[Rfam]
Annotation: The family of this 139-nucleotide RNA from Cnephaeus nilssonii is "Small nucleolar RNA SNORA67". Rfam 15.1 lists 580 matches to the family in 130 species. From the family's description: U67 belongs to the H/ACA class of snoRNAs which are thought to guide the sites of modification of uridines to pseudouridines.
RNA sequence: CCCCAAGGUGAUUCCUUGUUCGAGGGGCUUAAUGUGGCCUCUUCAGGAAAGGAGCAAAUUGGAAUAAACUCUGGCUUCAGGGUGUCAGCGGAGAAGGUGAUGCUUAAAUUCCUUGGCCUUCCUUUGGCUGCCUACAUGU
Numbered sequence: 001c002c003c004c005a006a007g008g009u010g011a012u013u014c015c016u017u018g019u020u021c022g023a024g025g026g027g028c029u030u031a032a033u034g035u036g037g038c039c040u041c042u043u044c045a046g047g048a049a050a051g052g053a054g055c056a057a058a059u060u061g062g063a064a065u066a067a068a069c070u071c072u073g074g075c076u077u078c079a080g081g082g083u084g085u086c087a088g089c090g091g092a093g094a095a096g097g098u099g100a101u102g103c104u105u106a107a108a109u110u111c112c113u114u115g116g117c118c119u120u121c122c123u124u125u126g127g128c129u130g131c132c133u134a135c136a137u138g139u
Stems, first nucleotide, its partner, number of pairs: 003062004009056002019048003023042006074129001077127002080121002087113002090110002